RNA sequence: GCAGGGAAUGCCGAAAACCUGAAAAAGAGUAGGCG
Numbered sequence: 001g002c003a004g005g006g007a008a009u010g011c012c013g014a015a016a017a018c019c020u021g022a023a024a025a026a027g028a029g030u031a032g033g034c035g
Base pairs, nucleotide, nucleotide: 002021003020004019005018010034011033012032
Dot-bracket structure: .((((....[[[.....))))..........]]].